[Rfam]
RNA sequence: GACGGGGCACGAAAGGUCCCAUGUGGAACGACCGAGGUGCGAACCUCCUGUAGGACUCAUGGGAAGCCGCUGUUCCGUCGUACGUUUUGAAAAACGA
Numbered sequence: 001g002a003c004g005g006g007g008c009a010c011g012a013a014a015g016g017u018c019c020c021a022u023g024u025g026g027a028a029c030g031a032c033c034g035a036g037g038u039g040c041g042a043a044c045c046u047c048c049u050g051u052a053g054g055a056c057u058c059a060u061g062g063g064a065a066g067c068c069g070c071u072g073u074u075c076c077g078u079c080g081u082a083c084g085u086u087u088u089g090a091a092a093a094a095c096g097a
Base pairs, nucleotide, nucleotide: 001079002078003077004076005075006074007073008072009071015068016067019062020061021060022059023058025056029053034047035046036045037044038043083096084095085094
Notes: This 97-nucleotide part of an RNA from Candidatus Halobonum tyrrellensis belongs to the Rfam family "Archaeal large subunit ribosomal RNA". The family's consensus secondary structure is taken from published work. The organism belongs to Candidatus Halobonum tyrrellensis, within Archaea. On this family, see Yusupov et al., Science 2001: "Crystal structure of the ribosome at 5.5 A resolution". A search with the family's covariance model found it, with a score of 2808 bits.